[Rfam]
RNA: Purine riboswitch aptamer
RNA sequence: AAACAGUUUGUACAAAAGACUCGUAUAUUUCCGAUGACUUGGACGGAAAGUUUCUACCUGCUAGCCAUAAAUUAGCAGACUACGAGGUAGUGUUUUAGUUUU
Numbered sequence: 001a002a003a004c005a006g007u008u009u010g011u012a013c014a015a016a017a018g019a020c021u022c023g024u025a026u027a028u029u030u031c032c033g034a035u036g037a038c039u040u041g042g043a044c045g046g047a048a049a050g051u052u053u054c055u056a057c058c059u060g061c062u063a064g065c066c067a068u069a070a071a072u073u074a075g076c077a078g079a080c081u082a083c084g085a086g087g088u089a090g091u092g093u094u095u096u097a098g099u100u101u102u
Base pairs, nucleotide, nucleotide: 018088020086021085022084023083024082025081029049030048032046035043058078059077060076061075062074063073064072